Record summary: Shown here is an 83-nucleotide sequence from Ictidomys tridecemlineatus, a member of the family "Small nucleolar RNA SNORD20". The source organism's lineage runs through Eukaryota, Gnathostomata, Euarchontoglires, Sciuridae and Ictidomys. Its family is annotated with nucleolus and RNA processing in the Gene Ontology. On this family, see Nicoloso et al., Mol Cell Biol 1994: "U20, a novel small nucleolar RNA, is encoded in an intron of the nucleolin gene in mammals".

RNA sequence: UGGAUAUGAUGACUGAUUACCUGAGAAAUAAUUGAUGAAAUAUCAAGAAAAAAAAUAUUUUAACAGUUUCUUUUUUUUUCCAC
Numbered sequence: 001u002g003g004a005u006a007u008g009a010u011g012a013c014u015g016a017u018u019a020c021c022u023g024a025g026a027a028a029u030a031a032u033u034g035a036u037g038a039a040a041u042a043u044c045a046a047g048a049a050a051a052a053a054a055a056u057a058u059u060u061u062a063a064c065a066g067u068u069u070c071u072u073u074u075u076u077u078u079u080c081c082a083c
Stems, first nucleotide, its partner, number of pairs: 001082004